[Rfam]
A member of the RNA family "Purine riboswitch aptamer" from Salimicrobium jeotgali, 101 nucleotides long. The base pairs follow the family's consensus structure, which is taken from published work. Riboswitches are metabolite binding domains within certain messenger RNAs that serve as precision sensors for their corresponding targets.
Nucleotides: 101
Base pairs, nucleotide, nucleotide: 019086020085021084022083023082024081025080028048029047030046031045032044033043034042057077058076059075060074061073062072063071
Number, partner (000 for none) and nucleotide at each position: 001000a002000a003000a004000a005000a006000a007000g008000c009000a010000u011000a012000a013000a014000a015000c016000g017000a018000a019086c020085c021084u022083c023082a024081u025080a026000u027000a028048g029047a030046g031045c032044g033043a034042u035000a036000a037000u038000a039000c040000g041000g042034a043033u044032c045031g046030u047029u048028c049000g050000u051000c052000u053000c054000u055000a056000c057077c058076u059075g060074g061073u062072c063071g064000c065000c066000g067000u068000a069000a070000a071063u072062g073061a074060c075059c076058g077057g078000a079000c080025u081024a082023u083022g084021a085020g086019g087000g088000g089000a090000g091000a092000c093000a094000c095000c096000c097000g098000g099000g100000a101000u